[Rfam]
Nucleotides: 054
Base pairs, nucleotide, nucleotide: 001022002021003020004019023041024040025039027037028036029035042054043053044052
Number, partner (000 for none) and nucleotide at each position: 001022c002021c003020g004019u005000c006000g007000c008000a009000a010000c011000c012000a013000a014000a015000g016000a017000g018000g019004g020003c021002g022001g023041c024040c025039g026000g027037g028036u029035g030000a031000g032000a033000a034000c035029c036028a037027c038000g039025c040024g041023g042054a043053g044052g045000u046000g047000a048000a049000a050000u051000u052044c053043c054042u

Rfam assigns this 54-nucleotide sequence from Merdimmobilis hominis to the family "pemK RNA". Taxonomically the source falls in Merdimmobilis (Bacteria, Bacillota, Eubacteriales, Oscillospiraceae). Rfam classes the family as a cis-regulatory element.